[Rfam]
This 124-nucleotide RNA from Robbsia andropogonis belongs to the Rfam family "Guanidine-I riboswitch aptamer". Pairs were carried over by alignment from the consensus structure.
RNA sequence: GCAAUGGACGACUAGGGUUCCGAUUUCCGUGAUGGCCGCCAUGGCUUACACGUCACGCGAAAUGCUGGUCCAAGAGUUGUCGACCUCUGGCGAGGUUACACGGCGGGAUAAAAGCCCGGGAGAG
Number, nucleotide and partner (000 for none) at each position: 001g000002c000003a000004a000005u000006g000007g081008a080009c079010g078011a077012c076013u000014a000015g071016g070017g000018u000019u000020c068021c067022g065023a063024u062025u061026u060027c059028c000029g000030u000031g000032a000033u000034g000035g000036c000037c000038g000039c000040c000041a000042u000043g000044g000045c000046u000047u000048a000049c000050a000051c000052g000053u000054c000055a000056c000057g000058c000059g027060a026061a025062a024063u023064g000065c022066u000067g021068g020069u000070c016071c015072a000073a000074g000075a000076g012077u011078u010079g009080u008081c007082g097083a096084c095085c094086u093087c092088u000089g000090g000091c000092g087093a086094g085095g084096u083097u082098a000099c119100a000101c122102g000103g000104c000105g117106g116107g115108a000109u000110a000111a000112a000113a000114g000115c107116c106117c105118g000119g099120g000121a000122g101123a000124g000